[Rfam]
RNA: Eukaryotic large subunit ribosomal RNA, nucleotides 2578 to 3172
Organism: Podilymbus podiceps
RNA sequence: CGGGGAAAGAAGACCCUGUUGAGCUUGACUCUAGUCUGGCGCUGUGAAGAGACAUGAGAGGUGUAGAAUAAGUGGGAGCUUCGGCGUCCGUGAAAUACCACUACUCUUAAUGUCGUUUUACUUAUUCCGUUAAGUUGAGACGCAUGCGCAUGCAUGUGUUUUGGAUUUAAGGUGGCAUUAGCCGCUGAUCUACGCGGAAGACAUAGUCAGGUUGGGAGUUUGGCUGGGGCGGCACAUCUGUGAAACAAUAGCGCAGGUGUCCUAAGGCAAGCUCAAUGAGAACAGAAAUCUCAUGUUGACCAAAAGGGGAAAAGCUUGCUUGAUUUUGAUUUUCAGUACGAAUACAAACUGUGAAAGCAUGGCCUAUCGAUCCUUUAGGUCUGAGAAACUUUCAGCUAGAGGUGUCAGAAAAGUUACCACAGGGAUAACUGGCUUGUGGCAGCCAAGCGUUCAUAGCGACGUUGCUUUUUGAUCCUUCGAUGUCGGCUCUUCCUAUCAUUGAGACGCAGAAGUCUCAAAGUGUCGGAUUGUUCACCCGCCAAUAGGGAACGUGAGCUGGGUUUAGACCGUCGUGAGACAGGUUAGUUUUACCCUA
Numbered sequence: 001c002g003g004g005g006a007a008a009g010a011a012g013a014c015c016c017u018g019u020u021g022a023g024c025u026u027g028a029c030u031c032u033a034g035u036c037u038g039g040c041g042c043u044g045u046g047a048a049g050a051g052a053c054a055u056g057a058g059a060g061g062u063g064u065a066g067a068a069u070a071a072g073u074g075g076g077a078g079c080u081u082c083g084g085c086g087u088c089c090g091u092g093a094a095a096u097a098c099c100a101c102u103a104c105u106c107u108u109a110a111u112g113u114c115g116u117u118u119u120a121c122u123u124a125u126u127c128c129g130u131u132a133a134g135u136u137g138a139g140a141c142g143c144a145u146g147c148g149c150a151u152g153c154a155u156g157u158g159u160u161u162u163g164g165a166u167u168u169a170a171g172g173u174g175g176c177a178u179u180a181g182c183c184g185c186u187g188a189u190c191u192a193c194g195c196g197g198a199a200g201a202c203a204u205a206g207u208c209a210g211g212u213u214g215g216g217a218g219u220u221u222g223g224c225u226g227g228g229g230c231g232g233c234a235c236a237u238c239u240g241u242g243a244a245a246c247a248a249u250a251g252c253g254c255a256g257g258u259g260u261c262c263u264a265a266g267g268c269a270a271g272c273u274c275a276a277u278g279a280g281a282a283c284a285g286a287a288a289u290c291u292c293a294u295g296u297u298g299a300c301c302a303a304a305a306g307g308g309g310a311a312a313a314g315c316u317u318g319c320u321u322g323a324u325u326u327u328g329a330u331u332u333u334c335a336g337u338a339c340g341a342a343u344a345c346a347a348a349c350u351g352u353g354a355a356a357g358c359a360u361g362g363c364c365u366a367u368c369g370a371u372c373c374u375u376u377a378g379g380u381c382u383g384a385g386a387a388a389c390u391u392u393c394a395g396c397u398a399g400a401g402g403u404g405u406c407a408g409a410a411a412a413g414u415u416a417c418c419a420c421a422g423g424g425a426u427a428a429c430u431g432g433c434u435u436g437u438g439g440c441a442g443c444c445a446a447g448c449g450u451u452c453a454u455a456g457c458g459a460c461g462u463u464g465c466u467u468u469u470u471g472a473u474c475c476u477u478c479g480a481u482g483u484c485g486g487c488u489c490u491u492c493c494u495a496u497c498a499u500u501g502a503g504a505c506g507c508a509g510a511a512g513u514c515u516c517a518a519a520g521u522g523u524c525g526g527a528u529u530g531u532u533c534a535c536c537c538g539c540c541a542a543u544a545g546g547g548a549a550c551g552u553g554a555g556c557u558g559g560g561u562u563u564a565g566a567c568c569g570u571c572g573u574g575a576g577a578c579a580g581g582u583u584a585g586u587u588u589u590a591c592c593c594u595a
Base pairs, nucleotide, nucleotide: 003594004593005592007589008588015423016422017421018420020419021418022415023414024413025412026411028219029218030217031216035211036210037209038208039207040206044121045120046119047118048117049116051114052113053112055109056108057107058106059105060104071102072101073100074099075098078085079084125199126198127197128196129195135192137190138189143156144155145154146153147152171186172185173184174183175182222235223233224232225231236258237257238256239255240254241253261362262361267319268318269317270316271315272314273299274298276294277293278292279291280290281289300309301308324348325347326346329343330342331341332340350359351358352357373401374400375399376398377397378396381395382394383393384392432473434471436470438466439465440464441463442462443461447457448456484559485557486556487555488554489551490548491547492546493545494544497522498521500517501516502515503514504513505512524538525537526536528534565583566582567581568580569578570577571576